[Rfam]
RNA sequence: GCGGCUACGGGAGGCUGUGACACGCGGUCCGCAAUCUGGUCGCCGGGGCCGCGCAUAGCCAAUGGCGAGACCGACCCGCGAGCGA
Dot-bracket structure: .((..(.((((.(((.......(((((((........[[[[[[[..)))))))....)))...]]]]]..]]..)))).)..)).
The record is an 85-nucleotide RNA, which matches "c-di-GMP-II-GAG riboswitch aptamer" in Rfam.
The base pairs follow the family's consensus structure, which is taken from published work.
Its Rfam clan is "c-di-GMP_II riboswitch clan".
The literature on the family includes a 2017 paper in Proc Natl Acad Sci U S A by Weinberg et al., "Bioinformatic analysis of riboswitch structures uncovers variant classes with altered ligand specificity".